Glycine riboswitch aptamer: a 98-nucleotide RNA sequence from Roseateles saccharophilus. A search with the family's covariance model found it, with a score of 50 bits. The organism belongs to Roseateles, within Bacteria.

[Rfam]
RNA sequence: UGCCGCCCGUCAGGAGAGCGCCCCGGUGCAGUUGGGGGCCGCCGAAGGCGCAGGGUCUCGUCACUCGAACGCUCAGGCAGAAGGACUGACAAAACGCC
Number, nucleotide and partner (000 for none) at each position: 001u000002g000003c000004c000005g000006c000007c000008c000009g090010u089011c088012a087013g086014g000015a000016g000017a000018g000019c000020g039021c038022c037023c036024c000025g000026g000027u000028g000029c000030a000031g000032u000033u000034g000035g000036g023037g022038g021039c020040c000041g078042c077043c076044g074045a073046a000047g000048g072049c071050g070051c000052a000053g000054g066055g065056u000057c000058u000059c000060g000061u000062c000063a000064c000065u055066c054067g000068a000069a000070c050071g049072c048073u045074c044075a000076g043077g042078c041079a000080g000081a000082a000083g000084g000085a000086c013087u012088g011089a010090c009091a000092a000093a000094a000095c000096g000097c000098c000